[Rfam]
The family of this 79-nucleotide RNA sequence from Kytococcus sp. HMSC28H12 is "ZMP/ZTP riboswitch aptamer (pfl RNA motif)". Pairs were carried over by alignment from the consensus structure, which is taken from published work.

RNA sequence: CUGGGGCCACACGACUGGCGCAGGUGGGCCACCACCGGGAAGUGACGAUUCGAGGGCAUCGCCCGCCUGGGUGCCCCGG
Numbered sequence: 001c002u003g004g005g006g007c008c009a010c011a012c013g014a015c016u017g018g019c020g021c022a023g024g025u026g027g028g029c030c031a032c033c034a035c036c037g038g039g040a041a042g043u044g045a046c047g048a049u050u051c052g053a054g055g056g057c058a059u060c061g062c063c064c065g066c067c068u069g070g071g072u073g074c075c076c077c078g079g
Stems, first nucleotide, its partner, number of pairs: 003051003007047001010044003015039002017067004024035004056074005